[Rfam]
Nucleotides: 103
Stems, first nucleotide, its partner, number of pairs: 007090004011053004017027004034046004059084004065078004
Number, partner (000 for none) and nucleotide at each position: 001000g002000a003000a004000g005000u006000c007090u008089g009088c010087u011053a012052g013051g014050g015000g016000a017027g018026c019025c020024a021000u022000u023000u024020u025019g026018g027017c028000u029000g030000a031000g032000a033000c034046a035045c036044a037043u038000c039000a040000u041000g042000c043037a044036u045035g046034u047000a048000a049000a050014c051013c052012c053011u054000u055000c056000g057000a058000a059084c060083c061082u062081g063000a064000u065078c066077u067076a068075g069000u070000u071000u072000a073000u074000u075068c076067u077066a078065g079000c080000g081062u082061a083060g084059g085000g086000a087010a088009g089008c090007a091000a092000c093000u094000g095000a096000a097000a098000c099000u100000c101000u102000a103000c
The record is a 103-nucleotide RNA from Sporosarcina sp. JAI121, which matches "TPP riboswitch aptamer (THI element)" in Rfam.
Taxonomically the source falls in Sporosarcina (Bacteria, Bacillota, Bacilli, Caryophanales).
The family's consensus secondary structure is taken from published work.
Rfam links the family to the GO term thiamine pyrophosphate binding.